[Rfam]
RNA sequence: AUAAAAAGUAGAGGUGCGUCAGGCAAAAGUAACGGUCGCUAGGGUGAUGCCGGUGAUCGACCGUGAAAGGGCUAUGACGCCGAAGUGGGAUAGGGGAAUCACACCCGCCUGCUGGUGCUGUUUCCGAUAAGGAACAGCACUGCCAUAGUAAAUGCCUGUCGGGAUGACGGGCUGUCGUAUUUACUGUGGAGCGCUACUGAAAGG
Numbered sequence: 001a002u003a004a005a006a007a008g009u010a011g012a013g014g015u016g017c018g019u020c021a022g023g024c025a026a027a028a029g030u031a032a033c034g035g036u037c038g039c040u041a042g043g044g045u046g047a048u049g050c051c052g053g054u055g056a057u058c059g060a061c062c063g064u065g066a067a068a069g070g071g072c073u074a075u076g077a078c079g080c081c082g083a084a085g086u087g088g089g090a091u092a093g094g095g096g097a098a099u100c101a102c103a104c105c106c107g108c109c110u111g112c113u114g115g116u117g118c119u120g121u122u123u124c125c126g127a128u129a130a131g132g133a134a135c136a137g138c139a140c141u142g143c144c145a146u147a148g149u150a151a152a153u154g155c156c157u158g159u160c161g162g163g164a165u166g167a168c169g170g171g172c173u174g175u176c177g178u179a180u181u182u183a184c185u186g187u188g189g190a191g192c193g194c195u196a197c198u199g200a201a202a203g204g
Stems, first nucleotide, its partner, number of pairs: 007198005016080006022073003032064007084113006093104001095102001114141011143189013